[Rfam]
Shown here is a 73-nucleotide sequence from Sylvia atricapilla, a member of the family "Small nucleolar RNA SNORD56". It is annotated as a C/D-box small nucleolar RNA.

RNA sequence: CUGCAGUGAUGGGAAUAUUUUUCGUCAACAGCAUCUCACCCUGUGUGAAUGGUGACUUCUCUGGGCUGAGCAG
Number, nucleotide and partner (000 for none) at each position: 001c000002u072003g071004c070005a000006g000007u000008g026009a025010u024011g023012g000013g000014a000015a000016u000017a000018u000019u000020u000021u000022u000023c011024g010025u009026c008027a000028a000029c000030a000031g000032c000033a000034u000035c000036u000037c000038a000039c000040c000041c000042u000043g000044u000045g000046u000047g000048a000049a000050u000051g000052g000053u000054g000055a000056c000057u000058u000059c000060u000061c000062u000063g000064g000065g000066c000067u000068g000069a000070g004071c003072a002073g000
The match comes from Rfam's covariance-model search (49 bits). Gene Ontology terms of the family: RNA processing and nucleolus. For this family Rfam cites "Purified box C/D snoRNPs are able to reproduce site-specific 2'-O-methylation of target RNA in vitro" (Galardi et al., Mol Cell Biol, 2002).